[Rfam]
RNA sequence: ACGUCCCGCCUCGUGAUCGUCUUCUCACCUUUCGCCGGGCGGGCGGAUUGACGGAGCGCCCCCGCACGUCGGAUACGUGCGGGGGCGCUCC
Numbered sequence: 001a002c003g004u005c006c007c008g009c010c011u012c013g014u015g016a017u018c019g020u021c022u023u024c025u026c027a028c029c030u031u032u033c034g035c036c037g038g039g040c041g042g043g044c045g046g047a048u049u050g051a052c053g054g055a056g057c058g059c060c061c062c063c064g065c066a067c068g069u070c071g072g073a074u075a076c077g078u079g080c081g082g083g084g085g086c087g088c089u090c091c
Stems, first nucleotide, its partner, number of pairs: 002045002005043007013035004019029001053091016

Rfam assigns this 91-nucleotide RNA sequence from Streptomyces tubercidicus to the family "sodF sRNA". The family's RNA type in Rfam is small RNA. The base pairs follow the family's consensus structure. Rfam links the family to the GO terms mRNA binding, regulation of mRNA stability and negative regulation of translation. On this family, see Kim et al., Nucleic Acids Res 2014: "Inverse regulation of Fe- and Ni-containing SOD genes by a Fur family regulator Nur through small RNA processed from 3'UTR of the sodF mRNA".